[Rfam]
Nucleotides: 156
Base pairs, nucleotide, nucleotide: 012066013065014064015063016062017061096149097148098147099146100145110135111134112133113132114131115130
Number, partner (000 for none) and nucleotide at each position: 001000a002000g003000c004000u005000c006000a007000g008000u009000g010000g011000a012066u013065g014064a015063a016062a017061g018000u019000g020000c021000c022000u023000g024000c025000a026000a027000g028000c029000a030000g031000g032000u033000g034000c035000a036000g037000g038000g039000g040000c041000u042000a043000g044000g045000g046000g047000u048000u049000c050000g051000a052000a053000c054000c055000c056000c057000a058000g059000g060000c061017c062016u063015u064014u065013c066012a067000g068000a069000a070000u071000u072000a073000g074000u075000c076000a077000g078000c079000a080000c081000a082000g083000c084000u085000a086000a087000a088000a089000u090000u091000g092000a093000g094000a095000c096149a097148c098147a099146g100145g101000u102000g103000a104000u105000c106000c107000u108000u109000c110135c111134a112133u113132c114131a115130c116000a117000g118000u119000a120000a121000a122000u123000a124000u125000u126000u127000a128000c129000a130115g131114u132113g133112g134111u135110g136000a137000c138000a139000a140000u141000c142000a143000g144000g145100c146099c147098u148097g149096u150000a151000a152000c153000a154000u155000u156000u
This 156-nucleotide RNA from Octodon degus belongs to the Rfam family "Small nucleolar RNA SNORA1". Gene Ontology terms of the family: RNA processing and nucleolus. It is annotated as an H/ACA-box small nucleolar RNA. ACA1 is a member of the H/ACA class of snoRNA that guide the sites of modification of uridines to pseudouridines. The family has 29 seed sequences and 1,282 matches in Rfam 15.1. The source organism's lineage runs through Eukaryota, Craniata, Mammalia, Theria and Octodon.